[Rfam]
RNA sequence: UGUAUCGACAUAUGUAAGUUGCUUUGGAUAAAAGCAUCUGCUAAAUGACUAAAU
Numbered sequence: 001u002g003u004a005u006c007g008a009c010a011u012a013u014g015u016a017a018g019u020u021g022c023u024u025u026g027g028a029u030a031a032a033a034g035c036a037u038c039u040g041c042u043a044a045a046u047g048a049c050u051a052a053a054u
Stems, first nucleotide, its partner, number of pairs: 013043001014041003020036006
Annotation: The family of this 54-nucleotide RNA from Anabas testudineus is "UnaL2 LINE 3' element". By type it is a cis-regulatory element. Taxonomically the source falls in Anabas (Eukaryota, Craniata, Neoteleostei, Anabantaria). For this family Rfam cites "Solution structure of an RNA stem-loop derived from the 3' conserved region of eel LINE UnaL2" (Baba et al., RNA, 2004). The eel long interspersed element (LINE) UnaL2 and its partner short interspersed element (SINE) share a conserved 3' tail containing a stem-loop that is critical for their retrotransposition. Presumably, the first step of retrotransposition is the recognition of their 3' tails by UnaL2-encoded reverse transcriptase.